[Rfam]
RNA sequence: CGUUUGCUGUGAUGAAUCACAAGGGCGGUAUAUAUCAUAGUAAGUUGGUUGUUGUAGAAGGCUGAUUUCCCUGAUUAUAAAUCCUAAACUGAUCAUAAACUCUGAGCAAACA
Numbered sequence: 001c002g003u004u005u006g007c008u009g010u011g012a013u014g015a016a017u018c019a020c021a022a023g024g025g026c027g028g029u030a031u032a033u034a035u036c037a038u039a040g041u042a043a044g045u046u047g048g049u050u051g052u053u054g055u056a057g058a059a060g061g062c063u064g065a066u067u068u069c070c071c072u073g074a075u076u077a078u079a080a081a082u083c084c085u086a087a088a089c090u091g092a093u094c095a096u097a098a099a100c101u102c103u104g105a106g107c108a109a110a111c112a
Base pairs, nucleotide, nucleotide: 002111003110004109005108006107007106040070042068043067044066045065
About this RNA
Shown here is a 112-nucleotide RNA from Triticum urartu, a member of the family "Small nucleolar RNA Z118/Z121/Z120". Rfam classes the family as a C/D-box small nucleolar RNA. A search with the family's covariance model found it, with a score of 57 bits. NCBI's taxonomy places the organism under Eukaryota, Euphyllophyta, Magnoliopsida, commelinids, Triticum. Pairs were carried over by alignment from the consensus structure, which was predicted with PFOLD.